[Rfam]
Source information:
The family of this 82-nucleotide RNA sequence is "mir-548 microRNA precursor family". On this family, see Witten et al., BMC Biol 2010: "Ultra-high throughput sequencing-based small RNA discovery and discrete statistical biomarker analysis in a collection of cervical tumours and matched controls". Gene Ontology terms of the family: miRNA-mediated post-transcriptional gene silencing and RISC complex. The family's consensus secondary structure was predicted with WAR.
RNA sequence: UAUUAGGUUGGUGCAAAGGUAUUUGUGGUUUUUGUCAUUAAAGUAAUGCAAAAGCCACAAAUACCUUUGCACCAACCUAAUA
Numbered sequence: 001u002a003u004u005a006g007g008u009u010g011g012u013g014c015a016a017a018g019g020u021a022u023u024u025g026u027g028g029u030u031u032u033u034g035u036c037a038u039u040a041a042a043g044u045a046a047u048g049c050a051a052a053a054g055c056c057a058c059a060a061a062u063a064c065c066u067u068u069g070c071a072c073c074a075a076c077c078u079a080a081u082a
Base pairs, nucleotide, nucleotide: 001082002081003080004079005078006077007076008075009074010073011072012071013070014069015068016067017066018065019064020063021062022061023060024059025058026057027056028055029054030053031052032051033050034049036048037047038046039045040044